[Rfam]
RNA sequence: GGAAGCUGGUCUCAGGUGGUGGCUUAGAGUGUUGUAGUCAUUAUCUAGCACCAUUUGAAAUCAGUGUUCU
Number, nucleotide and partner (000 for none) at each position: 001g070002g069003a068004a067005g065006c064007u063008g062009g061010u060011c000012u058013c057014a056015g000016g054017u053018g052019g051020u050021g049022g000023c000024u000025u047026a046027g045028a044029g000030u000031g000032u000033u000034g000035u000036a000037g000038u000039c000040a000041u000042u000043a000044u028045c027046u026047a025048g000049c021050a020051c019052c018053a017054u016055u000056u014057g013058a012059a000060a010061u009062c008063a007064g006065u005066g000067u004068u003069c002070u001

This 70-nucleotide sequence from Salvelinus namaycush belongs to the Rfam family "mir-29 microRNA precursor family". It scores 63 bits against the family's covariance model. NCBI's taxonomy places the organism under Eukaryota, Neopterygii, Clupeocephala, Salmonidae, Salvelinus. Pairs were carried over by alignment from the consensus structure, which was predicted with PFOLD. From the family's description: This family represents the microRNA (miRNA) precursors mir-29.